[Rfam]
RNA: TPP riboswitch aptamer (THI element)
Organism: Paenibacillus naphthalenovorans
RNA sequence: GUAUAUCACUAGGGGAGCCGAAUAGGCUGAGAUUGGAUCAAUAGAUCCUAGACCCUCUGAACCUGAUCUGGGUUAUACCAGCGUAGGAAAGUGGAGAUCAUUGGCG
Numbered sequence: 001g002u003a004u005a006u007c008a009c010u011a012g013g014g015g016a017g018c019c020g021a022a023u024a025g026g027c028u029g030a031g032a033u034u035g036g037a038u039c040a041a042u043a044g045a046u047c048c049u050a051g052a053c054c055c056u057c058u059g060a061a062c063c064u065g066a067u068c069u070g071g072g073u074u075a076u077a078c079c080a081g082c083g084u085a086g087g088a089a090a091g092u093g094g095a096g097a098u099c100a101u102u103g104g105c106g
Base pairs, nucleotide, nucleotide: 006094007093008092009091010090011056012055013054014053017027018026019025035048036047037046038045062087063086064085065084068081069080070079071078